[Rfam]
The record is a 129-nucleotide sequence from Panicum hallii, which matches "small nucleolar RNA snoR137" in Rfam. The source organism's lineage runs through Eukaryota, Magnoliopsida, Poaceae, Panicinae and Panicum hallii. Gene Ontology terms of the family: RNA processing and nucleolus.

RNA sequence: UUUGUUACAUAAAGAGUGACCUUCCAGUUUGGUCAUUUGUCAGGAGGAAGCAUUGAUGUGACUUUGCCAGUAUUAAACAGCAUUGUGCAUUCUUCUGUCGCACAGUGUUACCUGUCUCCUGGCACAUGU
Numbered sequence: 001u002u003u004g005u006u007a008c009a010u011a012a013a014g015a016g017u018g019a020c021c022u023u024c025c026a027g028u029u030u031g032g033u034c035a036u037u038u039g040u041c042a043g044g045a046g047g048a049a050g051c052a053u054u055g056a057u058g059u060g061a062c063u064u065u066g067c068c069a070g071u072a073u074u075a076a077a078c079a080g081c082a083u084u085g086u087g088c089a090u091u092c093u094u095c096u097g098u099c100g101c102a103c104a105g106u107g108u109u110a111c112c113u114g115u116c117u118c119c120u121g122g123c124a125c126a127u128g129u
Base pairs, nucleotide, nucleotide: 003048005046006045008043017035018034019033020032021031066123067122068121069120070119072117079109080108081107083105084104085103086102087101